A member of the RNA family "Plant signal recognition particle RNA" from Lactuca sativa, 303 nucleotides long. It is annotated as a non-coding RNA gene. Gene Ontology terms of the family: SRP-dependent cotranslational protein targeting to membrane, signal sequence recognition and signal recognition particle, endoplasmic reticulum targeting. Its Rfam clan is "SRP clan".
RNA sequence: ACCGGGCUUGGUAACACUUGUCUGUAACCCAAGUGGGGGUAUCAAGGUGGGUCGGACUGUGAUUUGGUCAGUUUGGCUGGGUCUGCUGUUGCAUUAUAUGGCUUGCCCGAUCCAAGUCGAGAGCUGACUCAUGUGGCUCGAGCGAAGGCUUGGGCUUCGUGGAUCUUAGAGUAAGAGGCAAUGCGUUAGGCUGGCUUCACAGAGCUGCGAAUACUCUUCUCUCCCGACAGUGGAUGGAUAACAGGCUUCGGCUCUUCAGACCCAUAUUGCCUACUGCUCCAAAUCAAAUGAACACCCACAUUU
Dot-bracket structure: (((((((..(......)..))))....(((....))))))...((.((((((.(..(..((((((((.((((..(((.(((((((..(..(..(.....((((((.((.(((((.((((.(((..((.(((((.(((((((((....))))))))).))))).))(....).(((((....(.(((....(((......)))....))).)..)))))..))).))))..)))))))....))))))..).)..).))))))).....))).))))..))))))))...)..))))))).)).